[Rfam]
RNA: mir-8364 microRNA precursor family
RNA sequence: UCUUCAUUGCGCAUGCUCUCUCGUCGGUCAGAGUGACGAGAGAGCAUGAGCAAUGGAGAGA
Numbered sequence: 001u002c003u004u005c006a007u008u009g010c011g012c013a014u015g016c017u018c019u020c021u022c023g024u025c026g027g028u029c030a031g032a033g034u035g036a037c038g039a040g041a042g043a044g045c046a047u048g049a050g051c052a053a054u055g056g057a058g059a060g061a
Stems, first nucleotide, its partner, number of pairs: 001059007010050001012048006019041004